[Rfam]
Record summary: A member of the RNA family "mir-532 microRNA precursor family" from Tupaia belangeri, 59 nucleotides long. Rfam links the family to the GO terms cellular response to glucose stimulus, cell and miRNA-mediated post-transcriptional gene silencing. Rfam's curators put it in the seed alignment.

RNA sequence: CAUGCCUUGAGUGUAGGACCGUUGGCAUCUUAAUUACCCUCCCACACCCAAGGCUUGCA
Numbered sequence: 001c002a003u004g005c006c007u008u009g010a011g012u013g014u015a016g017g018a019c020c021g022u023u024g025g026c027a028u029c030u031u032a033a034u035u036a037c038c039c040u041c042c043c044a045c046a047c048c049c050a051a052g053g054c055u056u057g058c059a
Base pairs, nucleotide, nucleotide: 001057002056004054005053006052007051008050009049011047012046013045014044016042017041018040021037022036